[Rfam]
RNA sequence: CCACUUGAUGAUGAGGAUCUAAUUGCUUAUAUCCUAAAUGGCCUAGAUGAUGAAUUUGAUCCUGUUGUUUCAGCUCUAGUUGCUAGGGUUGAACCAAUUUCGUUGGCGGAAGUAUAUUCACGACUAUUAAACUUUGAAA
Numbered sequence: 001c002c003a004c005u006u007g008a009u010g011a012u013g014a015g016g017a018u019c020u021a022a023u024u025g026c027u028u029a030u031a032u033c034c035u036a037a038a039u040g041g042c043c044u045a046g047a048u049g050a051u052g053a054a055u056u057u058g059a060u061c062c063u064g065u066u067g068u069u070u071c072a073g074c075u076c077u078a079g080u081u082g083c084u085a086g087g088g089u090u091g092a093a094c095c096a097a098u099u100u101c102g103u104u105g106g107c108g109g110a111a112g113u114a115u116a117u118u119c120a121c122g123a124c125u126a127u128u129a130a131a132c133u134u135u136g137a138a139a
Base pairs, nucleotide, nucleotide: 005137006136007135008134094106095105096104097103
The family of this 139-nucleotide sequence from Oryza meyeriana is "Small nucleolar RNA Z247". Its family is annotated with RNA processing and nucleolus in the Gene Ontology. The family has 8 seed sequences and 7,071 matches in Rfam 15.1. Rfam classes the family as a C/D-box small nucleolar RNA. Lineage of the source: Eukaryota > Streptophyta > Streptophytina > Euphyllophyta > Oryza meyeriana.